[Rfam]
RNA: mir-205 microRNA precursor family
Organism: Microcaecilia unicolor
RNA sequence: UUCUGUUGUCCUUCAUUCCACCGGAGUCUGUCUCACUCCUAACCAGAUUUCAGUGGAGUGAAGUGCAAGAGACA
Numbered sequence: 001u002u003c004u005g006u007u008g009u010c011c012u013u014c015a016u017u018c019c020a021c022c023g024g025a026g027u028c029u030g031u032c033u034c035a036c037u038c039c040u041a042a043c044c045a046g047a048u049u050u051c052a053g054u055g056g057a058g059u060g061a062a063g064u065g066c067a068a069g070a071g072a073c074a
Stems, first nucleotide, its partner, number of pairs: 011063006019055003023051004028046003